[Rfam]
Shown here is a 136-nucleotide RNA sequence from Candidatus Accumulibacter aalborgensis, a member of the family "Group II catalytic intron D1-D4-4". Its family is annotated with Group II intron splicing in the Gene Ontology. Pairs were carried over by alignment from the consensus structure. On this family, see Bonen and Vogel, Trends Genet 2001: "The ins and outs of group II introns". Group II introns are found in rRNA, tRNA and mRNA of organelles in fungi, plants and protists, and also in mRNA in bacteria.

RNA sequence: CAGCGGGUGCGAAUCCCGUCCGGUAACUUUCGUUCCGACCGGUAGCAACUGGAGCAGUCGUGGAGGCAACAAAGUGGCUGAAGCGUCCAGUGUAGAGGGUUCUUUAAGGAAUAGCGCUCAGAAGGCGAUAACUUUC
Numbered sequence: 001c002a003g004c005g006g007g008u009g010c011g012a013a014u015c016c017c018g019u020c021c022g023g024u025a026a027c028u029u030u031c032g033u034u035c036c037g038a039c040c041g042g043u044a045g046c047a048a049c050u051g052g053a054g055c056a057g058u059c060g061u062g063g064a065g066g067c068a069a070c071a072a073a074g075u076g077g078c079u080g081a082a083g084c085g086u087c088c089a090g091u092g093u094a095g096a097g098g099g100u101u102c103u104u105u106a107a108g109g110a111a112u113a114g115c116g117c118u119c120a121g122a123a124g125g126c127g128a129u130a131a132c133u134u135u136c
Base pairs, nucleotide, nucleotide: 020042021041022040023039024038050089051088052087053086055080056079057078058077059076060075065070099112100111101110102109115127